[Rfam]
RNA sequence: ACGGAAGCCCGACGAGGCCAAGAUCGGCCCGGAAGAGAAGGACCGAUCUCCCGAAGGCGGGCAACCCAGCACGGUACCGGGCACCCACGCGGAGCCGAAGCCGCGAUAGAGGCAGAAGCGUUGCGGGCCUGCGUAAUUGGCGGAAAGCGGACGGACGUGUCAACCCUUUGGGUUGGGUGACACCCGAAGCGCAACCCAAACACGCCGAGGCCAACCCACGCAACCAAACGUCGCACGCUUGGUAACCGGCUACCGUGCUAGCGGGCGGCGAUCCGAGUCCUUCGGAGCGCCGCCCGCUUCGCAUG
Numbered sequence: 001a002c003g004g005a006a007g008c009c010c011g012a013c014g015a016g017g018c019c020a021a022g023a024u025c026g027g028c029c030c031g032g033a034a035g036a037g038a039a040g041g042a043c044c045g046a047u048c049u050c051c052c053g054a055a056g057g058c059g060g061g062c063a064a065c066c067c068a069g070c071a072c073g074g075u076a077c078c079g080g081g082c083a084c085c086c087a088c089g090c091g092g093a094g095c096c097g098a099a100g101c102c103g104c105g106a107u108a109g110a111g112g113c114a115g116a117a118g119c120g121u122u123g124c125g126g127g128c129c130u131g132c133g134u135a136a137u138u139g140g141c142g143g144a145a146a147g148c149g150g151a152c153g154g155a156c157g158u159g160u161c162a163a164c165c166c167u168u169u170g171g172g173u174u175g176g177g178u179g180a181c182a183c184c185c186g187a188a189g190c191g192c193a194a195c196c197c198a199a200a201c202a203c204g205c206c207g208a209g210g211c212c213a214a215c216c217c218a219c220g221c222a223a224c225c226a227a228a229c230g231u232c233g234c235a236c237g238c239u240u241g242g243u244a245a246c247c248g249g250c251u252a253c254c255g256u257g258c259u260a261g262c263g264g265g266c267g268g269c270g271a272u273c274c275g276a277g278u279c280c281u282u283c284g285g286a287g288c289g290c291c292g293c294c295c296g297c298u299u300c301g302c303a304u305g
Base pairs, nucleotide, nucleotide: 003066004065007062008061009060010059011058016052017051021049022048025045026044027043029041030040068259069258070257071256072255073254074253075252078249080247081246085242086241087240089238090237091236094234095233100113101112102111120224121223122222123221124220125219126212127211128210129209130208131205132204133203134202137199138198139197140196142195147192148191149190152186153185154184163178164177165176166175261297262296263295264294265293266292267291268290269289270288273285274284275283